[Rfam]
Shown here is a 72-nucleotide RNA sequence from Clostridium sp. CAG:1013, a member of the family "Fluoride riboswitch aptamer (crcB RNA motif)".
The base pairs follow the family's consensus structure, which is taken from published work.
Rfam links the family to the GO terms positive regulation of gene expression and response to fluoride.
NCBI's taxonomy places the organism under Bacteria, Bacillati, Bacillota, Eubacteriales, Clostridium.
RNA sequence: GAAUUUCACGGGAAUGAAGUGCUCCCUUGGGAAACCUAAACCGCUUUUUAAGCUGAUGACUUCUGCGAGACA
Dot-bracket structure: .........[[[[..(((((..]]]]................(((.....))).....))))).........